[Rfam]
RNA sequence: GGGGCCAGAAGAGGAGCGUUACCCAGGUCGCUGACAACAGGUGCCAAAACCGUUGAAGGUCAGUCAGGGGGUGUAACGCCGAGAUAACCAUCAUCUUUGGCGAUGUUGUUUGUCGGCUGCGGGGGCUGAAUCCUCCGGGCUGUCACCUGAGGGUGGAGCGCUUCUGGCUGG
Numbered sequence: 001g002g003g004g005c006c007a008g009a010a011g012a013g014g015a016g017c018g019u020u021a022c023c024c025a026g027g028u029c030g031c032u033g034a035c036a037a038c039a040g041g042u043g044c045c046a047a048a049a050c051c052g053u054u055g056a057a058g059g060u061c062a063g064u065c066a067g068g069g070g071g072u073g074u075a076a077c078g079c080c081g082a083g084a085u086a087a088c089c090a091u092c093a094u095c096u097u098u099g100g101c102g103a104u105g106u107u108g109u110u111u112g113u114c115g116g117c118u119g120c121g122g123g124g125g126c127u128g129a130a131u132c133c134u135c136c137g138g139g140c141u142g143u144c145a146c147c148u149g150a151g152g153g154u155g156g157a158g159c160g161c162u163u164c165u166g167g168c169u170g171g
Stems, first nucleotide, its partner, number of pairs: 006166006016079007024071001030064006083114005089108002092105003115141004120137006143156005
RNA: Lysine riboswitch aptamer